[Rfam]
RNA sequence: AACCACCUUGUCUUGGGGUAGCGCUACUGUCCAAUGAACAAAUAGUGAGGGCAGUACCGCUAACGCCUACACAACAUGCCCGCAUCAACUAGAGCUUUGCUUUACUUUGGUGCGAUUUUUGGAAAA
Numbered sequence: 001a002a003c004c005a006c007c008u009u010g011u012c013u014u015g016g017g018g019u020a021g022c023g024c025u026a027c028u029g030u031c032c033a034a035u036g037a038a039c040a041a042a043u044a045g046u047g048a049g050g051g052c053a054g055u056a057c058c059g060c061u062a063a064c065g066c067c068u069a070c071a072c073a074a075c076a077u078g079c080c081c082g083c084a085u086c087a088a089c090u091a092g093a094g095c096u097u098u099g100c101u102u103u104a105c106u107u108u109g110g111u112g113c114g115a116u117u118u119u120u121g122g123a124a125a126a
Stems, first nucleotide, its partner, number of pairs: 005019005021060003026055007038046002082113006090104006
U4atac minor spliceosomal RNA: a 126-nucleotide RNA sequence from Propithecus coquereli. The family's consensus secondary structure is taken from published work. The family's RNA type in Rfam is spliceosomal small nuclear RNA. The organism belongs to Propithecus, within Eukaryota. From the family's description: U4atac is an essential component of the minor U12-type spliceosome complex which is required for removal of the rarer class of eukaryotic introns (AT-AC, U12-type). For this family Rfam cites "Evolutionary conservation of minor U12-type spliceosome between plants and humans" (Lorkovic et al., RNA, 2005). The family has 61 seed sequences and 1,648 matches in Rfam 15.1. Rfam links the family to the GO terms pre-mRNA 5'-splice site binding, spliceosomal tri-snRNP complex assembly and mRNA 5'-splice site recognition.